The family of this 118-nucleotide RNA sequence from Clostridium acidisoli is "FMN riboswitch aptamer (RFN element)". A search with the family's covariance model found it, with a score of 98 bits. NCBI's taxonomy places the organism under Bacteria, Bacillati, Bacillota, Clostridia, Clostridium acidisoli.

[Rfam]
RNA sequence: GACAAUCUUCAGGGCAGGGUGAGAUUCCCUACCGGCGGUAUAGCCCGCGGACCAAGUAUUUGGUAUGAUUCGGUGAAACUCCGAGGCCGACAGUAUAGUCUGGAUAAAGGAGAUAACU
Numbered sequence: 001g002a003c004a005a006u007c008u009u010c011a012g013g014g015c016a017g018g019g020u021g022a023g024a025u026u027c028c029c030u031a032c033c034g035g036c037g038g039u040a041u042a043g044c045c046c047g048c049g050g051a052c053c054a055a056g057u058a059u060u061u062g063g064u065a066u067g068a069u070u071c072g073g074u075g076a077a078a079c080u081c082c083g084a085g086g087c088c089g090a091c092a093g094u095a096u097a098g099u100c101u102g103g104a105u106a107a108a109g110g111a112g113a114u115a116a117c118u
Base pairs, nucleotide, nucleotide: 005114006113007112008111009110010109017029018028019027031099032098033089034088035048036047037046038045043087044086053063069085070084071083072082073081091102092101093100